RNA sequence: AAUCUUAUACAGUCUAAUCCCGAAAGGGAACGGAGGAACCAUUUUUUUGGGGUUAAUUCUACAAAUUUGUAGAAGGGAUGUGAAACUCUUUCGCCAUCCUACCCGUCAGCUAACUUCGUCGGCUAAAGCGAAGGAGGUC
Numbered sequence: 001a002a003u004c005u006u007a008u009a010c011a012g013u014c015u016a017a018u019c020c021c022g023a024a025a026g027g028g029a030a031c032g033g034a035g036g037a038a039c040c041a042u043u044u045u046u047u048u049g050g051g052g053u054u055a056a057u058u059c060u061a062c063a064a065a066u067u068u069g070u071a072g073a074a075g076g077g078a079u080g081u082g083a084a085a086c087u088c089u090u091u092c093g094c095c096a097u098c099c100u101a102c103c104c105g106u107c108a109g110c111u112a113a114c115u116u117c118g119u120c121g122g123c124u125a126a127a128g129c130g131a132a133g134g135a136g137g138u139c
Stems, first nucleotide, its partner, number of pairs: 011124004018029003030119006040049002050104003058073004076099004
Dot-bracket structure: ..........((((...(((......)))((((((....((......))(((.....((((........))))..((((................))))..))).........)))))).))))...............
Shown here is a 139-nucleotide RNA from Bacillus sp. 1NLA3E, a member of the family "c-di-AMP riboswitch aptamer (ydaO/yuaA leader)". Gene Ontology terms of the family: cyclic-di-AMP binding and regulation of gene expression. A search with the family's covariance model found it, with a score of 84 bits.